[Rfam]
RNA sequence: GGCUGGUCCGCGUGCAGUGAUGUUUACAGCUAAUUGAUCACAGUCAGCUACAGAUUUAUUUGUUCCUUCUCCAUUCCCACUGCUUCACUUGACUAGCCUUCA
Dot-bracket structure: ((((((((.(...(.((((..(.....(((.((.........................)).)))...........).))))....)...)))))))))....
Numbered sequence: 001g002g003c004u005g006g007u008c009c010g011c012g013u014g015c016a017g018u019g020a021u022g023u024u025u026a027c028a029g030c031u032a033a034u035u036g037a038u039c040a041c042a043g044u045c046a047g048c049u050a051c052a053g054a055u056u057u058a059u060u061u062g063u064u065c066c067u068u069c070u071c072c073a074u075u076c077c078c079a080c081u082g083c084u085u086c087a088c089u090u091g092a093c094u095a096g097c098c099u100u101c102a
Stems, first nucleotide, its partner, number of pairs: 001098008010090001014086001016081004022076001028064003032060002
The family of this 102-nucleotide sequence from Aotus nancymaae is "Y RNA". From the family's description: Y RNAs are components of the Ro ribonucleoprotein particle (Ro RNP), in association with Ro60 and La proteins. The source organism's lineage runs through Eukaryota, Craniata, Teleostomi, Haplorrhini and Aotus.